[Rfam]
RNA sequence: GGAAUUUCGUCAGCGUCGACCUCCUCCCCGACCUGACGGAUACGGUCGAUCCUCACCUCCUCCCGGGGAUUGACCACCGAAACGGCGCCCGCCGAACCUCCUCCCUCGGCGGGCGUUGUUA
Numbered sequence: 001g002g003a004a005u006u007u008c009g010u011c012a013g014c015g016u017c018g019a020c021c022u023c024c025u026c027c028c029c030g031a032c033c034u035g036a037c038g039g040a041u042a043c044g045g046u047c048g049a050u051c052c053u054c055a056c057c058u059c060c061u062c063c064c065g066g067g068g069a070u071u072g073a074c075c076a077c078c079g080a081a082a083c084g085g086c087g088c089c090c091g092c093c094g095a096a097c098c099u100c101c102u103c104c105c106u107c108g109g110c111g112g113g114c115g116u117u118g119u120u121a
Stems, first nucleotide, its partner, number of pairs: 007039003011035003015032003044075010085116011
Rfam assigns this 121-nucleotide RNA sequence from Mesorhizobium sp. Root554 to the family "Alphaproteobacterial ar14". Gene Ontology term of the family: biological process involved in symbiotic interaction. It scores 86 bits against the family's covariance model. A reference for the family is Robledo et al. (2017), "A conserved alpha-proteobacterial small RNA contributes to osmoadaptation and symbiotic efficiency of rhizobia on legume roots", Environ Microbiol.